[Rfam]
Annotation
The family of this 91-nucleotide sequence from Paenibacillus sp. Root444D2 is "ylbH leader". The organism belongs to Paenibacillus, within Bacteria. Its family is annotated with regulation of gene expression in the Gene Ontology. Rfam's curators write: This family is a putative regulatory RNA structure that is found upstream of the ylbH gene in B. subtilis and related low GC Gram-positive bacteria. A reference for the family is Barrick et al. (2004), "New RNA motifs suggest an expanded scope for riboswitches in bacterial genetic control", Proc Natl Acad Sci U S A. It is annotated as a cis-regulatory leader. The pairing is the family consensus, mapped onto this sequence.

RNA sequence: AAAUAAUAACGGCGGUCAUUUGCAUGACCGCCUCAUGGGAGAGGAGAAACCGGACGAAGAACUUAUGGGGAAACGUAAGUCUUCUCCGCGG
Numbered sequence: 001a002a003a004u005a006a007u008a009a010c011g012g013c014g015g016u017c018a019u020u021u022g023c024a025u026g027a028c029c030g031c032c033u034c035a036u037g038g039g040a041g042a043g044g045a046g047a048a049a050c051c052g053g054a055c056g057a058a059g060a061a062c063u064u065a066u067g068g069g070g071a072a073a074c075g076u077a078a079g080u081c082u083u084c085u086c087c088g089c090g091g
Stems, first nucleotide, its partner, number of pairs: 011032009033039002051088004056084004061080005